[Rfam]
Overview: Shown here is a 118-nucleotide RNA sequence from Turnix velox, a member of the family "Small nucleolar RNA SNORD10". Rfam 15.1 lists 433 matches to the family in 306 species.

RNA sequence: CCCCAGUGAUGACCUCCGUGCGUGUCACCUGACCCCGGGGGUUCAGGGUGAGACCCUGCGUCCUGCUGGGCCUUGACCUUGACCCCGGGGGGUGAUCAGCUGCCAAGGACUGAGGGGG
Numbered sequence: 001c002c003c004c005a006g007u008g009a010u011g012a013c014c015u016c017c018g019u020g021c022g023u024g025u026c027a028c029c030u031g032a033c034c035c036c037g038g039g040g041g042u043u044c045a046g047g048g049u050g051a052g053a054c055c056c057u058g059c060g061u062c063c064u065g066c067u068g069g070g071c072c073u074u075g076a077c078c079u080u081g082a083c084c085c086c087g088g089g090g091g092g093u094g095a096u097c098a099g100c101u102g103c104c105a106a107g108g109a110c111u112g113a114g115g116g117g118g
Stems, first nucleotide, its partner, number of pairs: 001118004044081006051074001

A reference for the family is Huttenhofer et al. (2001), "RNomics: an experimental approach that identifies 201 candidates for novel, small, non-messenger RNAs in mouse", EMBO J. The match comes from Rfam's covariance-model search (41 bits). Taxonomically the source falls in Turnix (Eukaryota, Bilateria, Amniota, Archelosauria).